[Rfam]
Shown here is a 73-nucleotide RNA from Mystacornis crossleyi, a member of the family "mir-204 microRNA precursor family". Its family is annotated with miRNA-mediated post-transcriptional gene silencing and RISC complex in the Gene Ontology. Lineage of the source: Eukaryota > Opisthokonta > Archosauria > Dinosauria > Mystacornis. Pairs were carried over by alignment from the consensus structure, which was predicted with RNAalifold. A search with the family's covariance model found it, with a score of 74 bits.
RNA sequence: CCCUUUGUCAUCCUAUGCCUGAGAAUAUAUGAAGGGGGCUGGGAAGGCAAAGGGACGUUCAACUGUCAUCACU
Numbered sequence: 001c002c003c004u005u006u007g008u009c010a011u012c013c014u015a016u017g018c019c020u021g022a023g024a025a026u027a028u029a030u031g032a033a034g035g036g037g038g039c040u041g042g043g044a045a046g047g048c049a050a051a052g053g054g055a056c057g058u059u060c061a062a063c064u065g066u067c068a069u070c071a072c073u
Base pairs, nucleotide, nucleotide: 001054002053003052004051005050007048008047011044012043013042014041015040017039018038019037020036